[Rfam]
RNA: tRNA
Organism: Coemansia spiralis
RNA sequence: GUCAGUGUGGCCGAGUGGUUAAGGCGACAGACUCGAAUGGCCAAUCAAAAGGCCACGGUCAUCUGUUGGAGUUUCUCCGCACAGGUUCAAAUCCUGUCGCUGACG
Numbered sequence: 001g002u003c004a005g006u007g008u009g010g011c012c013g014a015g016u017g018g019u020u021a022a023g024g025c026g027a028c029a030g031a032c033u034c035g036a037a038u039g040g041c042c043a044a045u046c047a048a049a050a051g052g053c054c055a056c057g058g059u060c061a062u063c064u065g066u067u068g069g070a071g072u073u074u075c076u077c078c079g080c081a082c083a084g085g086u087u088c089a090a091a092u093c094c095u096g097u098c099g100c101u102g103a104c105g
Base pairs, nucleotide, nucleotide: 001104002103003102004101005100006099007098010025011024012023027066028065029064030063031062081097082096083095084094085093